[Rfam]
RNA sequence: UGUUUGGUUUUCUAGGGUUCCGCAGCUUCUUCAAGCUGGUCAGGUCCGAGGGAAAACGCACGAAUCAAGAGAUUCGUGUUCACACGGAGGGAUAAAAGCCCGGGAGGA
Numbered sequence: 001u002g003u004u005u006g007g008u009u010u011u012c013u014a015g016g017g018u019u020c021c022g023c024a025g026c027u028u029c030u031u032c033a034a035g036c037u038g039g040u041c042a043g044g045u046c047c048g049a050g051g052g053a054a055a056a057c058g059c060a061c062g063a064a065u066c067a068a069g070a071g072a073u074u075c076g077u078g079u080u081c082a083c084a085c086g087g088a089g090g091g092a093u094a095a096a097a098g099c100c101c102g103g104g105a106g107g108a
Stems, first nucleotide, its partner, number of pairs: 007057006015047002020044002022041001023038006058079008083103001085106001089101003